[Rfam]
RNA sequence: AAGCCAGCUAUUGACUCUGCUUACCUGGAUGUGUUUCUGCAGAAACUUAGGAAAAGCUGGCAACAGUAAAGCCAUGUUACGAGCCUUAAAGAUAUCUGAGAUCAUUAAGGUCCCUGAAAAUGGCUACAGCU
Numbered sequence: 001a002a003g004c005c006a007g008c009u010a011u012u013g014a015c016u017c018u019g020c021u022u023a024c025c026u027g028g029a030u031g032u033g034u035u036u037c038u039g040c041a042g043a044a045a046c047u048u049a050g051g052a053a054a055a056g057c058u059g060g061c062a063a064c065a066g067u068a069a070a071g072c073c074a075u076g077u078u079a080c081g082a083g084c085c086u087u088a089a090a091g092a093u094a095u096c097u098g099a100g101a102u103c104a105u106u107a108a109g110g111u112c113c114c115u116g117a118a119a120a121u122g123g124c125u126a127c128a129g130c131u
Base pairs, nucleotide, nucleotide: 003061004060005059006058007057016043017042018041019040020039071124072123073122074121083111084110085109086108087107088106089105091103092102093101
A member of the RNA family "Small nucleolar RNA SNORA33" from Orycteropus afer, 131 nucleotides long.
The source organism's lineage runs through Eukaryota, Opisthokonta, Eumetazoa, Afrotheria and Orycteropus afer.
ACA33 is a member of the H/ACA class of snoRNA that guide the sites of modification of uridines to pseudouridines.
Its family is annotated with RNA processing and nucleolus in the Gene Ontology.